[Rfam]
RNA sequence: CCAACGGCUCUUUUAAGAGCCACUCACUUUUCUACAAAGAGCAAU
Numbered sequence: 001c002c003a004a005c006g007g008c009u010c011u012u013u014u015a016a017g018a019g020c021c022a023c024u025c026a027c028u029u030u031u032c033u034a035c036a037a038a039g040a041g042c043a044a045u
Stems, first nucleotide, its partner, number of pairs: 006021006
Shown here is a 45-nucleotide sequence from Ameiurus melas, a member of the family "Histone 3' UTR stem-loop". By type it is a cis-regulatory element. Rfam's curators write: The mRNAs of metazoan histone genes lack a poly-A tail. 3' end processing occurs at a site between a highly conserved stem-loop (modelled by this family) and a purine rich region around 20 nts downstream (the histone downstream element, or HDE). The stem-loop is bound by a 31 kDa stem-loop binding protein (SLBP - also termed the histone hairpin binding protein, or HBP). Together with U7 snRNA binding of the HDE, SLBP binding nucleate s the formation of the processing complex. For this family Rfam cites "The sequence of the stem and flanking sequences at the 3' end of histone mRNA are critical determinants for the binding of the stem-loop binding protein" (Williams and Marzluff, Nucleic Acids Res, 1995). Rfam 15.1 lists 44,596 matches to the family in 976 species. The match comes from Rfam's covariance-model search (38 bits).